RNA sequence: AGUCGGGCAAGAUGUCGGCCUGCAAUCUCCAGGCCGCCUGAUCGAAAACUGGUUCCGUCCUUGACCACGGAUGUACUGGCACUGACGUCACCGAGUAAUUUGAGGCCGGGCAAAUAGCCUGGCCUUUUU
Numbered sequence: 001a002g003u004c005g006g007g008c009a010a011g012a013u014g015u016c017g018g019c020c021u022g023c024a025a026u027c028u029c030c031a032g033g034c035c036g037c038c039u040g041a042u043c044g045a046a047a048a049c050u051g052g053u054u055c056c057g058u059c060c061u062u063g064a065c066c067a068c069g070g071a072u073g074u075a076c077u078g079g080c081a082c083u084g085a086c087g088u089c090a091c092c093g094a095g096u097a098a099u100u101u102g103a104g105g106c107c108g109g110g111c112a113a114a115u116a117g118c119c120u121g122g123c124c125u126u127u128u129u
Base pairs, nucleotide, nucleotide: 003045004044005043006042008040009039016036017035018034019033020032048096049095050094052092053090056087057086058085059084062081063080065079066078067077102126103125104124105123106122107121108120109119110118111117
RNA: Alphaproteobacterial sRNA ar35